[Rfam]
RNA sequence: UUCCUGUCACAACGGCUUCCUGGCGUGACAGAUGACCCUGUAAUGGAGCA
Numbered sequence: 001u002u003c004c005u006g007u008c009a010c011a012a013c014g015g016c017u018u019c020c021u022g023g024c025g026u027g028a029c030a031g032a033u034g035a036c037c038c039u040g041u042a043a044u045g046g047a048g049c050a
Stems, first nucleotide, its partner, number of pairs: 004031007013022002015049003019046002
About this RNA: The family of this 50-nucleotide RNA from Donghicola tyrosinivorans is "SAM/SAH riboswitch aptamer". A reference for the family is Weickhmann et al. (2019), "The structure of the SAM/SAH-binding riboswitch", Nucleic Acids Res. Rfam links the family to the GO terms S-adenosylmethionine metabolic process and regulation of gene expression.